RNA sequence: GUGUUAUGAUGAAAAAAGUUAUUUAAAUCCGACUAAGUAUAUGAAUGGAUGAAAUAACCUCCUACUCAUUCUGA
Numbered sequence: 001g002u003g004u005u006a007u008g009a010u011g012a013a014a015a016a017a018g019u020u021a022u023u024u025a026a027a028u029c030c031g032a033c034u035a036a037g038u039a040u041a042u043g044a045a046u047g048g049a050u051g052a053a054a055u056a057a058c059c060u061c062c063u064a065c066u067c068a069u070u071c072u073g074a
Stems, first nucleotide, its partner, number of pairs: 006069004030051001033048003
RNA: Small nucleolar RNA Z105
Organism: Papaver nudicaule